Rfam assigns this 106-nucleotide RNA sequence from Paucilactobacillus vaccinostercus to the family "TPP riboswitch aptamer (THI element)". Taxonomically the source falls in Paucilactobacillus vaccinostercus (Bacteria, Bacillota, Bacilli, Lactobacillaceae). From the family's description: Vitamin B(1) in its active form thiamin pyrophosphate (TPP) is an essential coenzyme that is synthesised by coupling of pyrimidine and thiazole moieties in bacteria.

RNA sequence: AUUUGACACUAGGGGUGUUCGGAGAAGAACUGAGACGCGUUUGCGCAACGCGAUCCCUUUGAACCUGUAAGUUCAGACUUGCGUAGGAAAGUGGAAAGUAGGGGGA
Dot-bracket structure: ......((((((((.(((((......))))......(((((.....))))))..)))).....((((((((......))))..))))..)))).............